[Rfam]
RNA sequence: ACGACUCCCAUUGGGGGUCAAGAUAUUAAACUAAUUUUUGUUGGGCGGCGGAGUGCAGGGGCUGUGCUUCGGCUCUGCCAACGGGUCGGCCUGGAGUUGCAGUACAUCCAGGAGUGGCCCACCAUUU
Dot-bracket structure: ..(((((((...)))))))...........................((((((((...(((((...))))).))))))))...((((((.((((((...........))))))..)))))).......
U2 spliceosomal RNA: a 127-nucleotide sequence from Medioppia subpectinata. Rfam describes the family as follows. U2 is a small nuclear RNA (snRNA) component of the spliceosome (involved in pre-mRNA splicing). Complementary binding between U2 snRNA (in an area lying towards the 5' end but 3' to hairpin I) and the branchpoint sequence (BPS) of the intron results the bulging out of an unpaired adenosine, on the BPS, which initiates a nucleophilic attack at the intronic 5' splice site, thus starting the first of two transesterification reactions that mediate splicing. It is annotated as a spliceosomal small nuclear RNA. Its Rfam clan is "U2 clan". It scores 64 bits against the family's covariance model. For this family Rfam cites "The uRNA database" (Zwieb, Nucleic Acids Res, 1997).